Shown here is a 98-nucleotide RNA sequence from Erysipelatoclostridium sp. An173, a member of the family "azaaromatic riboswitch aptamer (yjdF RNA)". The family's consensus secondary structure is taken from published work.
RNA sequence: AAGUGCUAGAAUAAAAACACAUUGUGGUUGGUAGUCCACAAGCAGCUAAGCUGUCAGUAACCUGCCUCCUUAGGUUGUCCGUUUCUAGAGAUAAAUAA
Number, nucleotide and partner (000 for none) at each position: 001a000002a000003g000004u090005g000006c088007u087008a086009g085010a084011a083012u000013a000014a000015a000016a000017a000018c000019a000020c000021a000022u041023u040024g039025u038026g037027g036028u000029u000030g000031g000032u000033a000034g000035u000036c027037c026038a025039c024040a023041a022042g054043c053044a052045g051046c050047u000048a000049a000050g046051c045052u044053g043054u042055c000056a000057g000058u000059a000060a000061c000062c000063u000064g075065c074066c073067u072068c000069c000070u000071u000072a067073g066074g065075u064076u000077g000078u000079c000080c000081g000082u000083u011084u010085c009086u008087a007088g006089a000090g004091a000092u000093a000094a000095a000096u000097a000098a000